[Rfam]
RNA: Small nucleolar RNA U54
Organism: Artemisia annua
RNA sequence: AGCUCUAUGAUCGAAUGCCGUUUAAGGCAAUAUACGCUAUUCCGAUUAUCACAUGACCGGAAAAAUACAUUUUAUGAGAGCU
Numbered sequence: 001a002g003c004u005c006u007a008u009g010a011u012c013g014a015a016u017g018c019c020g021u022u023u024a025a026g027g028c029a030a031u032a033u034a035c036g037c038u039a040u041u042c043c044g045a046u047u048a049u050c051a052c053a054u055g056a057c058c059g060g061a062a063a064a065a066u067a068c069a070u071u072u073u074a075u076g077a078g079a080g081c082u
Stems, first nucleotide, its partner, number of pairs: 001082005